[Rfam]
RNA sequence: CUUUUUAUUAAAAAAUUAUCCUGAUAAUAACAAUAAAUCUGGUAAGGCACUUUCAAAAAAUAGCCAAAUCACACAUUAUUAAGAAAACCACUACAAUCAAAAUCGGUAACUAUCAGCUUUCAGGGGGGUCUCAGGUUAUCAUGACGAUCGGGGUAAAGGAUGAACUACUAUUGCGGUCUGAAUUGAGGGAGUUUUGAUAAAUUUUUUUGAUAAAGUUUUGAUAACCGUUCGAAUACUAAUAAUAAAAACGGGGACGUUAAGUCCCCGUUUUAGUUUUUA
Numbered sequence: 001c002u003u004u005u006u007a008u009u010a011a012a013a014a015a016u017u018a019u020c021c022u023g024a025u026a027a028u029a030a031c032a033a034u035a036a037a038u039c040u041g042g043u044a045a046g047g048c049a050c051u052u053u054c055a056a057a058a059a060a061u062a063g064c065c066a067a068a069u070c071a072c073a074c075a076u077u078a079u080u081a082a083g084a085a086a087a088c089c090a091c092u093a094c095a096a097u098c099a100a101a102a103u104c105g106g107u108a109a110c111u112a113u114c115a116g117c118u119u120u121c122a123g124g125g126g127g128g129u130c131u132c133a134g135g136u137u138a139u140c141a142u143g144a145c146g147a148u149c150g151g152g153g154u155a156a157a158g159g160a161u162g163a164a165c166u167a168c169u170a171u172u173g174c175g176g177u178c179u180g181a182a183u184u185g186a187g188g189g190a191g192u193u194u195u196g197a198u199a200a201a202u203u204u205u206u207u208u209g210a211u212a213a214a215g216u217u218u219u220g221a222u223a224a225c226c227g228u229u230c231g232a233a234u235a236c237u238a239a240u241a242a243u244a245a246a247a248a249c250g251g252g253g254a255c256g257u258u259a260a261g262u263c264c265c266c267g268u269u270u271u272a273g274u275u276u277u278u279a
Base pairs, nucleotide, nucleotide: 046065047064048063148176149175150174152172153171241275242274243273245271246270247269248268249267250266251265252264254262255261
The family of this 279-nucleotide sequence from Salmonella enterica is "STnc150 Hfq binding RNA".